RNA sequence: CUCCGACAAAGCCAAACUCCGAGUGAUCGGAGGACGGAAAGCCACGGGUCCACACUUUCACUGAAUCUGCCUUCUGUUCGCUGCCCUACAUAUUUAAAGUUCCUGGAUAUCCAGGUUGCCGAA
Dot-bracket structure: ...........((...((((((....))))))...))..((((..(((((((...................................................)))))..)).))))......
c-di-GMP-I riboswitch aptamer: a 123-nucleotide RNA sequence from Olavius algarvensis associated proteobacterium Delta 3.
The organism belongs to Deltaproteobacteria, within Bacteria.
The match comes from Rfam's covariance-model search (51 bits).